Description: Shown here is a 145-nucleotide RNA from Orycteropus afer, a member of the family "Small nucleolar RNA SNORA12". It is annotated as an H/ACA-box small nucleolar RNA. Rfam 15.1 lists 571 matches to the family in 378 species. A search with the family's covariance model found it, with a score of 125 bits. From the family's description: U108 belongs to the H/ACA family of snoRNAs. The sequence is predicted to guide the pseudouridylation of the U372 residue in the 28S rRNA subunit. However it has not been reported as a pseudouridylation site.
RNA sequence: CAUUGUGGUGGUUUCUUUCUGGCACAUUGGUUAAGUUUCAAAUGGGCCUGACUCUGCCACAUACAUUACGUAGGAGCUAACAAAGGCGUGAUGAGAAAGAACUCUCUCUCGCCUUACCCGCAUCAGAGAUUGGCUCCCCACACAU
Numbered sequence: 001c002a003u004u005g006u007g008g009u010g011g012u013u014u015c016u017u018u019c020u021g022g023c024a025c026a027u028u029g030g031u032u033a034a035g036u037u038u039c040a041a042a043u044g045g046g047c048c049u050g051a052c053u054c055u056g057c058c059a060c061a062u063a064c065a066u067u068a069c070g071u072a073g074g075a076g077c078u079a080a081c082a083a084a085g086g087c088g089u090g091a092u093g094a095g096a097a098a099g100a101a102c103u104c105u106c107u108c109u110c111g112c113c114u115u116a117c118c119c120g121c122a123u124c125a126g127a128g129a130u131u132g133g134c135u136c137c138c139c140a141c142a143c144a145u
Stems, first nucleotide, its partner, number of pairs: 005060007021048003025044004030039001073137006081086001105129005